[Rfam]
RNA sequence: CCCGCCGCUUCAUUGGGGAGUAGCCGCCGACGGUCGAUCACCGAUCUGUCGGAGGGCGUGUCAACACACUUGUUCCGUCAGGAACAUGGCACGUCCGGCGCUCGCAGGGCGGGACCGUCCGGCGGGCAGGCAGGCGAGACUGAU
Numbered sequence: 001c002c003c004g005c006c007g008c009u010u011c012a013u014u015g016g017g018g019a020g021u022a023g024c025c026g027c028c029g030a031c032g033g034u035c036g037a038u039c040a041c042c043g044a045u046c047u048g049u050c051g052g053a054g055g056g057c058g059u060g061u062c063a064a065c066a067c068a069c070u071u072g073u074u075c076c077g078u079c080a081g082g083a084a085c086a087u088g089g090c091a092c093g094u095c096c097g098g099c100g101c102u103c104g105c106a107g108g109g110c111g112g113g114a115c116c117g118u119c120c121g122g123c124g125g126g127c128a129g130g131c132a133g134g135c136g137a138g139a140c141u142g143a144u
Stems, first nucleotide, its partner, number of pairs: 027052007054096010071086005
Manganese Mn2+ riboswitch aptamer (yybP-ykoY): a 144-nucleotide RNA sequence from Povalibacter uvarum. This RNA was originally discovered in E. coli during a large scale screen and was named SraF. The family was later found to exist upstream of related families of protein genes in many bacteria, including the the yybP and ykoK genes in B. subtilis. Taxonomically the source falls in Povalibacter (Bacteria, Pseudomonadota, Gammaproteobacteria, Steroidobacteraceae).